Overview: Rfam assigns this 425-nucleotide RNA sequence from Pectobacterium parmentieri to the family "Soft rot Enterobacteriaceae Rev 72 asRNA". About the family: From bacteria cultured under starvation conditions. The literature on the family includes a 2016 paper in BMC Genomics by Kwenda et al., "Discovery and profiling of small RNAs responsive to stress conditions in the plant pathogen Pectobacterium atrosepticum". Pairs were carried over by alignment from the consensus structure, which was predicted with RNAfold. Rfam's curators put it in the seed alignment.
RNA sequence: UGAUUUGGAAUGAACCAUGCUUGUAGGGUGAUCAGAAUAAAAACAGGUAUAACUCCCUUAAUACCGAAAUAACACGGUCAGGAAAGCGGUGCCAUAAUCCGUGCCGCCUUACCAACCUCAGUAAAAAGUAUAAGUUUUCUUAUUUCACAACUCAUUGGGCAAUAGCACAGCAUUCCCUAUCGAAAUGCAGAUUAAAUAUGUCAUUAUCACAAGCGAAUGGGAGGUGUUUCACGAAAACUGAGAAACGCGAAUUUCUGCCUGAUAAACAUCGGAAUACGUACUAUUGGCACCUAAUUUCGAAGAGGUAAAUCCCUACUUUUCAUGACAUAAAUAAAGAACAAAACGCCGAACCAUCAGUAUGACGGCACAGCGUUUUGUGUUACUGCUUAGAUGCAGAUUAAUGCAGUAGCGAAUGGUUUUAAUUC
Numbered sequence: 001u002g003a004u005u006u007g008g009a010a011u012g013a014a015c016c017a018u019g020c021u022u023g024u025a026g027g028g029u030g031a032u033c034a035g036a037a038u039a040a041a042a043a044c045a046g047g048u049a050u051a052a053c054u055c056c057c058u059u060a061a062u063a064c065c066g067a068a069a070u071a072a073c074a075c076g077g078u079c080a081g082g083a084a085a086g087c088g089g090u091g092c093c094a095u096a097a098u099c100c101g102u103g104c105c106g107c108c109u110u111a112c113c114a115a116c117c118u119c120a121g122u123a124a125a126a127a128g129u130a131u132a133a134g135u136u137u138u139c140u141u142a143u144u145u146c147a148c149a150a151c152u153c154a155u156u157g158g159g160c161a162a163u164a165g166c167a168c169a170g171c172a173u174u175c176c177c178u179a180u181c182g183a184a185a186u187g188c189a190g191a192u193u194a195a196a197u198a199u200g201u202c203a204u205u206a207u208c209a210c211a212a213g214c215g216a217a218u219g220g221g222a223g224g225u226g227u228u229u230c231a232c233g234a235a236a237a238c239u240g241a242g243a244a245a246c247g248c249g250a251a252u253u254u255c256u257g258c259c260u261g262a263u264a265a266a267c268a269u270c271g272g273a274a275u276a277c278g279u280a281c282u283a284u285u286g287g288c289a290c291c292u293a294a295u296u297u298c299g300a301a302g303a304g305g306u307a308a309a310u311c312c313c314u315a316c317u318u319u320u321c322a323u324g325a326c327a328u329a330a331a332u333a334a335a336g337a338a339c340a341a342a343a344c345g346c347c348g349a350a351c352c353a354u355c356a357g358u359a360u361g362a363c364g365g366c367a368c369a370g371c372g373u374u375u376u377g378u379g380u381u382a383c384u385g386c387u388u389a390g391a392u393g394c395a396g397a398u399u400a401a402u403g404c405a406g407u408a409g410c411g412a413a414u415g416g417u418u419u420u421a422a423u424u425c
Stems, first nucleotide, its partner, number of pairs: 004126003008122001011120003017050008029040001031038002057082003061078002065076002086107007132419005137413003140409004157168001159166002170404005177396002180393001187386004197329008213290001216285005223270007230257002233255004239249002292299001303314003335381002338378009348368001351365002354362003